[Rfam]
RNA sequence: UGGUGACAUGAUGCUUCAACAUCUUUCGGGACUGAUUUUAAUGAGGACAUCUCUACUUCUGAUCACCC
Dot-bracket structure: .(((((........................................................))))).
Rfam assigns this 68-nucleotide sequence from Scleropages formosus to the family "Small nucleolar RNA SNORD2". The source organism's lineage runs through Eukaryota, Eumetazoa, Vertebrata, Osteoglossocephalai and Scleropages.